[Rfam]
About this RNA:
This 167-nucleotide RNA sequence from Bacillus sp. PK3_68 belongs to the Rfam family "glmS glucosamine-6-phosphate activated ribozyme aptamer". A reference for the family is Hampel and Tinsley (2006), "Evidence for preorganization of the glmS ribozyme ligand binding pocket", Biochemistry. A search with the family's covariance model found it, with a score of 125 bits. By type it is a riboswitch.
RNA sequence: UUAUUUUAUAAAGCGCCUGAACUAGCGGGAGAGAGCCUGACUAGUUGACGAGGAGGAGGUUUAUCGAAAUGUUCGGCGGAUGCCUCCCGGUUGAUCACCGCACAACCGACAGUCCUUCCUUAAAUCACGAGGGUAACCUUGUGGACAAAGGGAAUGGAAAUGCGGAA
Numbered sequence: 001u002u003a004u005u006u007u008a009u010a011a012a013g014c015g016c017c018u019g020a021a022c023u024a025g026c027g028g029g030a031g032a033g034a035g036c037c038u039g040a041c042u043a044g045u046u047g048a049c050g051a052g053g054a055g056g057a058g059g060u061u062u063a064u065c066g067a068a069a070u071g072u073u074c075g076g077c078g079g080a081u082g083c084c085u086c087c088c089g090g091u092u093g094a095u096c097a098c099c100g101c102a103c104a105a106c107c108g109a110c111a112g113u114c115c116u117u118c119c120u121u122a123a124a125u126c127a128c129g130a131g132g133g134u135a136a137c138c139u140u141g142u143g144g145a146c147a148a149a150g151g152g153a154a155u156g157g158a159a160a161u162g163c164g165g166a167a
Base pairs, nucleotide, nucleotide: 020046021045022044023043024042025041029037055087056086057085058084059083064076065075066074067073088108089107090106091105092104093103113157114156116154117153118152119151126143127142128141129140130139131138132137